[Rfam]
A member of the RNA family "R2 RNA element" from Drosophila rhopaloa, 227 nucleotides long. The family's RNA type in Rfam is cis-regulatory element. The literature on the family includes a 2004 paper in RNA by Ruschak et al., "Secondary structure models of the 3' untranslated regions of diverse R2 RNAs".
RNA sequence: AACAAACAUUCACUUUUGAUACAUAAUGAAUCCAAAAAUAAUUUUUUUUUUGGAAAAGAAAAUUUGGGCACUAGGGUUAAGGAUGGUUUUAGUACGUAGGCAUUGCAGAACCCUCAACGUGAAGAAGGUUCUAAUAAGGCAGUGAAUCGUGCAUGCUAGACAUUACCCCACCACACAAGGUGAUGGCGGUCCUAGUAUCUUUCGAAGAUUUCCAUACCUUAACGAUA
Numbered sequence: 001a002a003c004a005a006a007c008a009u010u011c012a013c014u015u016u017u018g019a020u021a022c023a024u025a026a027u028g029a030a031u032c033c034a035a036a037a038a039u040a041a042u043u044u045u046u047u048u049u050u051u052g053g054a055a056a057a058g059a060a061a062a063u064u065u066g067g068g069c070a071c072u073a074g075g076g077u078u079a080a081g082g083a084u085g086g087u088u089u090u091a092g093u094a095c096g097u098a099g100g101c102a103u104u105g106c107a108g109a110a111c112c113c114u115c116a117a118c119g120u121g122a123a124g125a126a127g128g129u130u131c132u133a134a135u136a137a138g139g140c141a142g143u144g145a146a147u148c149g150u151g152c153a154u155g156c157u158a159g160a161c162a163u164u165a166c167c168c169c170a171c172c173a174c175a176c177a178a179g180g181u182g183a184u185g186g187c188g189g190u191c192c193u194a195g196u197a198u199c200u201u202u203c204g205a206a207g208a209u210u211u212c213c214a215u216a217c218c219u220u221a222a223c224g225a226u227a
Stems, first nucleotide, its partner, number of pairs: 031057001032053003064225003078221005084214003092152005101144006107132005154197006
About this RNA
Rfam 15.1 lists 3,698 matches to the family in 74 species. Its family is annotated with regulation of reverse transcription in the Gene Ontology. A search with the family's covariance model found it, with a score of 99 bits. This family represents the 3' UTR region of the R2 retrotransposable element. This family is known to interact with the R2-encoded reverse transcriptase in a reaction known as target primed reverse transcription (TPRT).